[Rfam]
The family of this 101-nucleotide sequence from Chryseobacterium piperi is "SAM-I/IV (S-adenosyl methionine) riboswitch aptamer". A search with the family's covariance model found it, with a score of 60 bits. Pairs were carried over by alignment from the consensus structure, which is taken from published work. The organism belongs to Chryseobacterium, within Bacteria.
RNA sequence: AAUAAUUAUCAAGAAUCUCAUAGAUGGGAUAGCAACCUGCAAAAACAAGCAAGGUGCUGAAAUAGAUAAGCCGAUUCUCUUUCGGAAAAAAUGUUUUAAUC
Numbered sequence: 001a002a003u004a005a006u007u008a009u010c011a012a013g014a015a016u017c018u019c020a021u022a023g024a025u026g027g028g029a030u031a032g033c034a035a036c037c038u039g040c041a042a043a044a045a046c047a048a049g050c051a052a053g054g055u056g057c058u059g060a061a062a063u064a065g066a067u068a069a070g071c072c073g074a075u076u077c078u079c080u081u082u083c084g085g086a087a088a089a090a091a092u093g094u095u096u097u098a099a100u101c
Base pairs, nucleotide, nucleotide: 006069007068008067009066010065015030016029017028018027019026020025031058032057033056036054037053038052039050040049043097044096045095071085072084073083074082